Shown here is a 138-nucleotide sequence from Streptomyces olivoverticillatus, a member of the family "c-di-AMP riboswitch aptamer (ydaO/yuaA leader)".
[Rfam]
RNA sequence: CGUGCGCCUUCGCCGAAUCCCGUGUGCGGAACCGGGGAACCACCAACCCCUGGGGUGAAUCGGACCGUUCGCGGCCCGUAGGAGACCUUCCCGCUCCGAACCCGUCAGCUAACCCGGUAGGCGAGUCGGAAGGAAAGG
Numbered sequence: 001c002g003u004g005c006g007c008c009u010u011c012g013c014c015g016a017a018u019c020c021c022g023u024g025u026g027c028g029g030a031a032c033c034g035g036g037g038a039a040c041c042a043c044c045a046a047c048c049c050c051u052g053g054g055g056u057g058a059a060u061c062g063g064a065c066c067g068u069u070c071g072c073g074g075c076c077c078g079u080a081g082g083a084g085a086c087c088u089u090c091c092c093g094c095u096c097c098g099a100a101c102c103c104g105u106c107a108g109c110u111a112a113c114c115c116g117g118u119a120g121g122c123g124a125g126u127c128g129g130a131a132g133g134a135a136a137g138g
Stems, first nucleotide, its partner, number of pairs: 011123004018030003031118006041052002053103003061078003081097004
Source information:
Rfam's curators write: This family represents a conserved RNA structure found upstream of the ydaO and yuaA genes in Bacillus subtilis and related genes in other bacteria. The base pairs follow the family's consensus structure. Taxonomically the source falls in Streptomyces (Bacteria, Bacillati, Actinomycetota, Kitasatosporales).